[Rfam]
RNA sequence: UAGUGACGCUCUGGAAAGUGCCCCGUCCAUUUCGGAUGUGGCCGCCGAAGGUGUAAGCCCGGAUACCCUGCUGCAGGGUGGCCGGGGCAAAGCUCUCAGGCUUCCGUGACAGAGGGGGCACC
Numbered sequence: 001u002a003g004u005g006a007c008g009c010u011c012u013g014g015a016a017a018g019u020g021c022c023c024c025g026u027c028c029a030u031u032u033c034g035g036a037u038g039u040g041g042c043c044g045c046c047g048a049a050g051g052u053g054u055a056a057g058c059c060c061g062g063a064u065a066c067c068c069u070g071c072u073g074c075a076g077g078g079u080g081g082c083c084g085g086g087g088c089a090a091a092g093c094u095c096u097c098a099g100g101c102u103u104c105c106g107u108g109a110c111a112g113a114g115g116g117g118g119c120a121c122c
Base pairs, nucleotide, nucleotide: 007116009114010113011112012111013110020042021041022040044101045100046099047097048096051095053093057088058087059086060085

This 122-nucleotide RNA sequence from Novosphingobium pentaromativorans belongs to the Rfam family "Glycine riboswitch aptamer". About the family: This family represents the bacterial glycine riboswitch. The match comes from Rfam's covariance-model search (47 bits). NCBI's taxonomy places the organism under Bacteria, Pseudomonadati, Pseudomonadota, Sphingomonadaceae, Novosphingobium pentaromativorans.